[Rfam]
RNA sequence: GGGGCCUUAGUAUAAUGGGAUUACGUUUGGCUGGCAGCCAAAUAAUACGGGUUCGAUCCCCGUGGGCUCCA
Numbered sequence: 001g002g003g004g005c006c007u008u009a010g011u012a013u014a015a016u017g018g019g020a021u022u023a024c025g026u027u028u029g030g031c032u033g034g035c036a037g038c039c040a041a042a043u044a045a046u047a048c049g050g051g052u053u054c055g056a057u058c059c060c061c062g063u064g065g066g067c068u069c070c071a
Base pairs, nucleotide, nucleotide: 001070002069003068004067005066006065007064010024011023012022026042027041028040029039030038047063048062049061050060051059
RNA: tRNA
Organism: Tetragenococcus muriaticus